[Rfam]
RNA sequence: UUUUGAGGUGAUGAUAAUUGUUCGGGAAUUUCAAUAUGUCCAUUUAGAACAAUCAGACUACAAUUAUCUGAUCGAAC
Numbered sequence: 001u002u003u004u005g006a007g008g009u010g011a012u013g014a015u016a017a018u019u020g021u022u023c024g025g026g027a028a029u030u031u032c033a034a035u036a037u038g039u040c041c042a043u044u045u046a047g048a049a050c051a052a053u054c055a056g057a058c059u060a061c062a063a064u065u066a067u068c069u070g071a072u073c074g075a076a077c
Stems, first nucleotide, its partner, number of pairs: 002076005
RNA: Small nucleolar RNA Z155
Organism: Kingdonia uniflora